[Rfam]
RNA sequence: GUCAUCAAGUGAUGAAUACAUUCAUUAAUCUUAGGACACCUUUAGACACAGCUUCUUCAGGCUGUGAAUGAAAAUACUCUUUAUUCUGAUGAUGAC
Numbered sequence: 001g002u003c004a005u006c007a008a009g010u011g012a013u014g015a016a017u018a019c020a021u022u023c024a025u026u027a028a029u030c031u032u033a034g035g036a037c038a039c040c041u042u043u044a045g046a047c048a049c050a051g052c053u054u055c056u057u058c059a060g061g062c063u064g065u066g067a068a069u070g071a072a073a074a075u076a077c078u079c080u081u082u083a084u085u086c087u088g089a090u091g092a093u094g095a096c
Stems, first nucleotide, its partner, number of pairs: 001096007045049001

Annotation
The family of this 96-nucleotide RNA sequence from Sesamum indicum is "Small nucleolar RNA snoR31/Z110/Z27". Gene Ontology terms of the family: RNA processing and nucleolus. Taxonomically the source falls in Sesamum (Eukaryota, Tracheophyta, Spermatophyta, Magnoliopsida). The match comes from Rfam's covariance-model search (65 bits). From the family's description: This family contains several related snoRNAs including R31, Z27 and Z110. The base pairs follow the family's consensus structure, which was predicted with PFOLD.